[Rfam]
RNA sequence: GGUCAUGAGACGCGGCUGCACUCCUUCGACAGAGGCCGCGCGGCAACCGGAACCGAACCCGGUGCCCGUCGAGGAAGACCCGGUCGGAGAGCAGCCGCUCCUUCGGUCAGCGGACC
Numbered sequence: 001g002g003u004c005a006u007g008a009g010a011c012g013c014g015g016c017u018g019c020a021c022u023c024c025u026u027c028g029a030c031a032g033a034g035g036c037c038g039c040g041c042g043g044c045a046a047c048c049g050g051a052a053c054c055g056a057a058c059c060c061g062g063u064g065c066c067c068g069u070c071g072a073g074g075a076a077g078a079c080c081c082g083g084u085c086g087g088a089g090a091g092c093a094g095c096c097g098c099u100c101c102u103u104c105g106g107u108c109a110g111c112g113g114a115c116c
Stems, first nucleotide, its partner, number of pairs: 001080004009041001011040006021032001042066003047062003083107007090099003
Rfam assigns this 116-nucleotide RNA from Brachybacterium alimentarium to the family "SAM (S-adenosyl methionine) riboswitch aptamer". For this family Rfam cites "The aptamer core of SAM-IV riboswitches mimics the ligand-binding site of SAM-I riboswitches" (Weinberg et al., RNA, 2008). Lineage of the source: Bacteria > Actinomycetes > Micrococcales > Dermabacteraceae > Brachybacterium. Pairs were carried over by alignment from the consensus structure, which is taken from published work. SAM-IV is a mRNA element that regulates gene expression via direct sensing of S-adenosylmethionine (SAM or AdoMet). SAM-IV riboswitches share conserved nucleotide positions with the previously described SAM-I riboswitches sequence analysis and molecular recognition experiments suggest that SAM-I and SAM-IV riboswitches share similar ligand binding sites, but have different scaffolds.